[Rfam]
RNA sequence: UUUUGUAUCAUUUUCGUGUUUAUGCACAUCCUAUAUGGAUGUGCAUAAACACGAAAAUGAUACAAAA
Numbered sequence: 001u002u003u004u005g006u007a008u009c010a011u012u013u014u015c016g017u018g019u020u021u022a023u024g025c026a027c028a029u030c031c032u033a034u035a036u037g038g039a040u041g042u043g044c045a046u047a048a049a050c051a052c053g054a055a056a057a058u059g060a061u062a063c064a065a066a067a
Base pairs, nucleotide, nucleotide: 002066003065004064005063006062008060009059010058011057012056013055014054015053016052017051018050019049020048023045024044025043026042027041028040029039
RNA: mir-153 microRNA precursor family